[Rfam]
RNA sequence: GUUAAACCCUCCGGGUUAUAACGGGAGCUUGCAACAAGCUCGUAGUUGACCAGGCUAAGUCAUUUAAGACUACGUUAUCUAAUUCAUGACACCUACAAAUACGUGCCAGUUUGUAGCAACUGUCGUACAACUUUAAACAGGUGUAAUUGAGUUAAGCCAGUGAGUUGUACCUAACAAGGCUAGAUAACAUUGCCGAGGCAAACUUUAC
Number, nucleotide and partner (000 for none) at each position: 001g050002u049003u048004a047005a046006a000007c042008c000009c027010u026011c024012c023013g000014g000015g022016u021017u000018a000019u000020a000021a016022c015023g012024g011025g000026a010027g009028c038029u037030u036031g035032c000033a000034a000035c031036a030037a029038g028039c000040u000041c000042g007043u000044a000045g000046u005047u004048g003049a002050c001051c000052a000053g194054g193055c192056u000057a190058a071059g070060u069061c068062a000063u000064u000065u000066a000067a000068g061069a060070c059071u058072a000073c000074g188075u187076u186077a185078u184079c183080u182081a181082a000083u179084u178085c000086a000087u000088g000089a123090c122091a000092c000093c116094u115095a114096c113097a112098a111099a110100u109101a204102c000103g000104u200105g199106c198107c197108a000109g100110u099111u098112u097113g096114u095115a094116g093117c000118a000119a000120c000121u000122g090123u089124c000125g170126u169127a168128c167129a166130a165131c164132u163133u162134u000135a000136a000137a161138c160139a000140g158141g157142u156143g000144u154145a153146a152147u000148u000149g000150a000151g000152u146153u145154a144155a000156g142157c141158c140159a000160g138161u137162g133163a132164g131165u130166u129167g128168u127169a126170c125171c000172u000173a000174a000175c000176a000177a000178g084179g083180c000181u081182a080183g079184a078185u077186a076187a075188c074189a000190u057191u000192g055193c054194c053195g000196a000197g107198g106199c105200a104201a000202a000203c000204u101205u000206u000207a000208c000

This 208-nucleotide sequence from Moorena producens belongs to the Rfam family "HNH endonuclease-associated RNA and ORF (HEARO) RNA". Lineage of the source: Bacteria > Bacillati > Coleofasciculales > Moorena > Moorena producens.